[Rfam]
Background
Rfam assigns this 93-nucleotide RNA sequence from Bacillus benzoevorans to the family "pan motif". Pairs were carried over by alignment from the consensus structure, which is taken from published work. NCBI's taxonomy places the organism under Bacteria, Bacillati, Bacilli, Caryophanales, Bacillus. A search with the family's covariance model found it, with a score of 60 bits.
RNA sequence: CGGGCGGUAUCAUUGUCGUGAACUGCACCAUUCUGUAUCAAUUUGACAAUAACUAUAUCUGCCUAGAUCCUAAAAAUGGACCAGGACAGAGGG
Numbered sequence: 001c002g003g004g005c006g007g008u009a010u011c012a013u014u015g016u017c018g019u020g021a022a023c024u025g026c027a028c029c030a031u032u033c034u035g036u037a038u039c040a041a042u043u044u045g046a047c048a049a050u051a052a053c054u055a056u057a058u059c060u061g062c063c064u065a066g067a068u069c070c071u072a073a074a075a076a077u078g079g080a081c082c083a084g085g086a087c088a089g090a091g092g093g
Base pairs, nucleotide, nucleotide: 002029003028004026005025006024007023008022010021011020059089060088061087062085063084064083066081068080069079070078